[Rfam]
RNA sequence: CAGGAAAUAGUUUAAUGAAGAAUGCCAGCUUUGGGAGUUGGGGGUAGAGGUUUGAGUCCUCUUUUCCUGA
Numbered sequence: 001c002a003g004g005a006a007a008u009a010g011u012u013u014a015a016u017g018a019a020g021a022a023u024g025c026c027a028g029c030u031u032u033g034g035g036a037g038u039u040g041g042g043g044g045u046a047g048a049g050g051u052u053u054g055a056g057u058c059c060u061c062u063u064u065u066c067c068u069g070a
Base pairs, nucleotide, nucleotide: 001069002068003067004066005065006064007063010023011022012021013020025041026040027039028038029037046062047061048060049059050058
Dot-bracket structure: (((((((..((((......)))).(((((.......)))))....(((((.......)))))))))))).
A member of the RNA family "tRNA" from Pelecanus crispus, 70 nucleotides long.
Rfam's curators write: Transfer RNA (tRNA) molecules are approximately 80 nucleotides in length.
The base pairs follow the family's consensus structure, which is taken from published work.
Rfam classes the family as a transfer RNA.